This 173-nucleotide sequence from Fervidibacillus halotolerans belongs to the Rfam family "Group II catalytic intron D1-D4-3".

RNA sequence: UCCCUGGUGACGCGGAAUCUGAAGGAAUCGAGCGGCAAAUUUCCGAUCUGAGGAACACGAACUUCAUAUAAGGCUAGGUAUCAUUGGAUGAGUUUGCUCAGGCAACAAAGUCCUUUCUGCCCAAGGUGAUACCGAGUAAAUGAAGCAGAUAAAUGGAAAGAAAGAUUGCACUC
Number, nucleotide and partner (000 for none) at each position: 001u016002c015003c014004c000005u012006g011007g000008u000009g000010a000011c006012g005013c000014g003015g002016a001017a000018u000019c000020u000021g000022a000023a000024g000025g000026a000027a000028u000029c000030g173031a172032g171033c000034g000035g000036c164037a000038a000039a000040u159041u158042u157043c156044c155045g154046a150047u149048c148049u147050g146051a000052g000053g000054a000055a000056c000057a000058c000059g000060a000061a000062c145063u144064u143065c142066a141067u140068a000069u000070a000071a000072g000073g137074c136075u135076a000077g133078g132079u131080a130081u129082c128083a127084u000085u000086g113087g112088a111089u110090g000091a000092g106093u105094u104095u000096g000097c000098u000099c000100a000101g000102g000103c000104a094105a093106c092107a000108a000109a000110g089111u088112c087113c086114u000115u000116u000117c000118u000119g000120c000121c000122c000123a000124a000125g000126g000127u083128g082129a081130u080131a079132c078133c077134g000135a075136g074137u073138a000139a000140a067141u066142g065143a064144a063145g062146c050147a049148g048149a047150u046151a000152a000153a000154u045155g044156g043157a042158a041159a040160g000161a000162a000163a000164g036165a000166u000167u000168g000169c000170a000171c032172u031173c030

Background
The pairing is the family consensus, mapped onto this sequence. The match comes from Rfam's covariance-model search (127 bits). Lineage of the source: Bacteria > Bacilli > Caryophanales > Bacillaceae > Fervidibacillus. About the family: Group II introns are found in rRNA, tRNA and mRNA of organelles in fungi, plants and protists, and also in mRNA in bacteria.